[Rfam]
A member of the RNA family "Eukaryotic large subunit ribosomal RNA" from Blastomyces gilchristii, 422 nucleotides of a longer RNA. Pairs were carried over by alignment from the consensus structure, which is taken from published work. The organism belongs to Blastomyces gilchristii, within Eukaryota. The family has 88 seed sequences and 107,465 matches in Rfam 15.1.
RNA sequence: UGACCUCAGAUCAGGUAGAAAUACCUGCUGAACUUAAGCAUAUUAAUAAGCAGAGAAAAAGAAAUCAACAGAGAUUAUCUCAGUAACAGUGAGUGAAGUAAUAAAAGCUCAAAUUUGAAAUCUGGCUUUUUUGAGACCUGAGUUGUAAUUUGUGAGAAAUGCUUCAGACAUGGCCACAGUCUAAGUUCUCUGAAACAGAGCAUCACAGAGGGUGAGAAUUCUGUCUUAAGCUGACUGGCUUCGCCCAUGUGAAGCUUCUUCAAUGAGUUGAGUUGUUUGGAAAUGCAGCUCUAAAUAAGUGAUAAAUUUCAUUUAAAGCUAAAUAUUGAUCAGAGACUGAUAGCACACAAGUAGAGUAAUUGAAAGAUAAAAAACACUUUAAAAAGAGAGUUAAACAGCAUGUGAAAUUGUUAAAAGAAAAG
Numbered sequence: 001u002g003a004c005c006u007c008a009g010a011u012c013a014g015g016u017a018g019a020a021a022u023a024c025c026u027g028c029u030g031a032a033c034u035u036a037a038g039c040a041u042a043u044u045a046a047u048a049a050g051c052a053g054a055g056a057a058a059a060a061g062a063a064a065u066c067a068a069c070a071g072a073g074a075u076u077a078u079c080u081c082a083g084u085a086a087c088a089g090u091g092a093g094u095g096a097a098g099u100a101a102u103a104a105a106a107g108c109u110c111a112a113a114u115u116u117g118a119a120a121u122c123u124g125g126c127u128u129u130u131u132u133g134a135g136a137c138c139u140g141a142g143u144u145g146u147a148a149u150u151u152g153u154g155a156g157a158a159a160u161g162c163u164u165c166a167g168a169c170a171u172g173g174c175c176a177c178a179g180u181c182u183a184a185g186u187u188c189u190c191u192g193a194a195a196c197a198g199a200g201c202a203u204c205a206c207a208g209a210g211g212g213u214g215a216g217a218a219u220u221c222u223g224u225c226u227u228a229a230g231c232u233g234a235c236u237g238g239c240u241u242c243g244c245c246c247a248u249g250u251g252a253a254g255c256u257u258c259u260u261c262a263a264u265g266a267g268u269u270g271a272g273u274u275g276u277u278u279g280g281a282a283a284u285g286c287a288g289c290u291c292u293a294a295a296u297a298a299g300u301g302a303u304a305a306a307u308u309u310c311a312u313u314u315a316a317a318g319c320u321a322a323a324u325a326u327u328g329a330u331c332a333g334a335g336a337c338u339g340a341u342a343g344c345a346c347a348c349a350a351g352u353a354g355a356g357u358a359a360u361u362g363a364a365a366g367a368u369a370a371a372a373a374a375c376a377c378u379u380u381a382a383a384a385a386g387a388g389a390g391u392u393a394a395a396c397a398g399c400a401u402g403u404g405a406a407a408u409u410g411u412u413a414a415a416a417g418a419a420a421a422g
Stems, first nucleotide, its partner, number of pairs: 024055001025053005035042002065072002076103003086094002106320004112150004118144002121141002124138002127135001156260001158257002162254004167245001169243001172240002177233004185201001187200001189198001204208001211221002270291007297314005354361002377388004